[Rfam]
RNA: Small nucleolar RNA snR57
Organism: Millerozyma farinosa
RNA sequence: CCACAUGAAGAAUUAUACAACUUCUUAAUUCUAAACUGAGGAUGUAAAUGCGGGAUUAAUAGUCGUAGAAAUUCUUCGUUUAUAAUCAGUGG
Numbered sequence: 001c002c003a004c005a006u007g008a009a010g011a012a013u014u015a016u017a018c019a020a021c022u023u024c025u026u027a028a029u030u031c032u033a034a035a036c037u038g039a040g041g042a043u044g045u046a047a048a049u050g051c052g053g054g055a056u057u058a059a060u061a062g063u064c065g066u067a068g069a070a071a072u073u074c075u076u077c078g079u080u081u082a083u084a085a086u087c088a089g090u091g092g
Base pairs, nucleotide, nucleotide: 001092002091003090004089
Dot-bracket structure: ((((....................................................................................))))